[Rfam]
RNA: mir-8/mir-141/mir-200 microRNA precursor family
Organism: Tetranychus urticae
RNA sequence: AGAGACAUCUUACCAGACAGCGUUGGAAUGGUUAUUUGAAAUAAUCUAAUACUGUCAGGUAAAGAUGUCUUA
Numbered sequence: 001a002g003a004g005a006c007a008u009c010u011u012a013c014c015a016g017a018c019a020g021c022g023u024u025g026g027a028a029u030g031g032u033u034a035u036u037u038g039a040a041a042u043a044a045u046c047u048a049a050u051a052c053u054g055u056c057a058g059g060u061a062a063a064g065a066u067g068u069c070u071u072a
Stems, first nucleotide, its partner, number of pairs: 002071008010062005016056005022050006